[Rfam]
Bacterial RNase P class A: a 377-nucleotide RNA sequence from Shimia sp. SK013.
The family's RNA type in Rfam is ribozyme.
Pairs were carried over by alignment from the consensus structure, which is taken from published work.
RNA sequence: GCAGAGGGCUGGAUGGCCGCGGGCGGCAACGUCAGAGGAAAGUCCGGACUCCAUAAGGCAACGGUGCCGGGUAACGCCCGGCUGGGGAAACCCAAGGGAAAGCGCCACAGAGAACAGACCGCUCCCGCUUGCGGGAGUAAGGGUGAAACGGUGGGGUAAGAGCCCACCGCGGCCCUGGCAACAGGGACGGCACGGCAAGCCCCACCGGGAGCAAUGCCAAAUAGGGAUCGCGUGUGCGCAAGCACAGGGGCGCCUUGCCCCGAGCAGGUCCGGGUUGGCAGCUAUAGGGCGUCUGGCAACAGGCGCUUAAGAUGAAUGGUCAUCGAACCGAGGGCAACUUCGGGGAACAAAAUCCGGCUUAUAGGCCCUCUGCGCGU
Numbered sequence: 001g002c003a004g005a006g007g008g009c010u011g012g013a014u015g016g017c018c019g020c021g022g023g024c025g026g027c028a029a030c031g032u033c034a035g036a037g038g039a040a041a042g043u044c045c046g047g048a049c050u051c052c053a054u055a056a057g058g059c060a061a062c063g064g065u066g067c068c069g070g071g072u073a074a075c076g077c078c079c080g081g082c083u084g085g086g087g088a089a090a091c092c093c094a095a096g097g098g099a100a101a102g103c104g105c106c107a108c109a110g111a112g113a114a115c116a117g118a119c120c121g122c123u124c125c126c127g128c129u130u131g132c133g134g135g136a137g138u139a140a141g142g143g144u145g146a147a148a149c150g151g152u153g154g155g156g157u158a159a160g161a162g163c164c165c166a167c168c169g170c171g172g173c174c175c176u177g178g179c180a181a182c183a184g185g186g187a188c189g190g191c192a193c194g195g196c197a198a199g200c201c202c203c204a205c206c207g208g209g210a211g212c213a214a215u216g217c218c219a220a221a222u223a224g225g226g227a228u229c230g231c232g233u234g235u236g237c238g239c240a241a242g243c244a245c246a247g248g249g250g251c252g253c254c255u256u257g258c259c260c261c262g263a264g265c266a267g268g269u270c271c272g273g274g275u276u277g278g279c280a281g282c283u284a285u286a287g288g289g290c291g292u293c294u295g296g297c298a299a300c301a302g303g304c305g306c307u308u309a310a311g312a313u314g315a316a317u318g319g320u321c322a323u324c325g326a327a328c329c330g331a332g333g334g335c336a337a338c339u340u341c342g343g344g345g346a347a348c349a350a351a352a353u354c355c356g357g358c359u360u361a362u363a364g365g366c367c368c369u370c371u372g373c374g375c376g377u
Base pairs, nucleotide, nucleotide: 001373002372003371004370005369006368007367008366009365010364011362012324013323014322015321016320017319018318020035022033023032024031025030040360041359042358044357045356046355047354048353049211050210051209052208057256058255062207063206064205065204066203067081068080069079070078071077082096083094084093085092086091097202098201102200103199104196105195106194119142120141121138122137123136124135125134126133127132150168151167152166153165154164155163169191170189171188173186174185175184176183177182215280216279217278218277225271226270227269228268229267247261248260249259250258251257288307289306290305291304292303293302294301295300